Rfam assigns this 86-nucleotide RNA from Parvibaculum sedimenti to the family "ZMP/ZTP riboswitch aptamer (pfl RNA motif)". It scores 71 bits against the family's covariance model. Rfam links the family to the GO terms one-carbon metabolic process and regulation of purine nucleotide biosynthetic process. The family's consensus secondary structure is taken from published work.

[Rfam]
RNA sequence: UAUCCUCCGCGCGACUGGCGAUAUGAGAUGGGCAACCAUCGGGGAGCGCGGAGACCGAUCUACAGCCGAUCGCCUGGGCAGCAACG
Numbered sequence: 001u002a003u004c005c006u007c008c009g010c011g012c013g014a015c016u017g018g019c020g021a022u023a024u025g026a027g028a029u030g031g032g033c034a035a036c037c038a039u040c041g042g043g044g045a046g047c048g049c050g051g052a053g054a055c056c057g058a059u060c061u062a063c064a065g066c067c068g069a070u071c072g073c074c075u076g077g078g079c080a081g082c083a084a085c086g
Stems, first nucleotide, its partner, number of pairs: 005053008015043002017074005028039004063081001065079003
Dot-bracket structure: ....((((((((..(([[[[[......((((....))))..))..)))))))).........(.(((..]]]]]..))).).....